[Rfam]
RNA sequence: UACUUAAUUGUGGUUUAGGGUCUGAAAAAUUCAUACAGUUUUGUGUUGUCAUCAGCUUCUACUCUUGCAUUUUUACGAGAUUGGAGUUAAAUAACAGCACUAAAUUG
Numbered sequence: 001u002a003c004u005u006a007a008u009u010g011u012g013g014u015u016u017a018g019g020g021u022c023u024g025a026a027a028a029a030u031u032c033a034u035a036c037a038g039u040u041u042u043g044u045g046u047u048g049u050c051a052u053c054a055g056c057u058u059c060u061a062c063u064c065u066u067g068c069a070u071u072u073u074u075a076c077g078a079g080a081u082u083g084g085a086g087u088u089a090a091a092u093a094a095c096a097g098c099a100c101u102a103a104a105u106u107g
Stems, first nucleotide, its partner, number of pairs: 043100006054088006062079003